[Rfam]
Nucleotides: 081
Stems, first nucleotide, its partner, number of pairs: 005074008016038001018036001020032004041054002044051002055066004
Number, partner (000 for none) and nucleotide at each position: 001000g002000a003000a004000a005074c006073c007072u008071c009070a010069c011068c012067u013000u014000g015000c016038c017000a018036c019000a020032c021031g022030c023029c024000a025000u026000c027000c028000g029023g030022g031021c032020g033000c034000c035000a036018g037000a038016g039000c040000a041054g042053u043000u044051u045050u046000a047000u048000a049000a050045a051044a052000c053042a054041c055066g056065g057064a058063c059000u060000u061000c062000c063058g064057u065056c066055c067012g068011g069010g070009u071008g072007a073006g074005g075000a076000g077000a078000a079000a080000g081000a